[Rfam]
Record summary:
The record is an 80-nucleotide RNA sequence, which matches "skipping-rope RNA" in Rfam. The sequence is in the family's curated seed alignment. It is annotated as a small RNA.

RNA sequence: GAAAGCAGAGGACGGAACAGGCAGCCGUCACGCCCUAGUGGUCUUUAAAGAGAUGUAGGAUUGUCACCCUACCUAUUUCA
Numbered sequence: 001g002a003a004a005g006c007a008g009a010g011g012a013c014g015g016a017a018c019a020g021g022c023a024g025c026c027g028u029c030a031c032g033c034c035c036u037a038g039u040g041g042u043c044u045u046u047a048a049a050g051a052g053a054u055g056u057a058g059g060a061u062u063g064u065c066a067c068c069c070u071a072c073c074u075a076u077u078u079c080a
Stems, first nucleotide, its partner, number of pairs: 001079004008073001011029005020065004031050001032042003055072005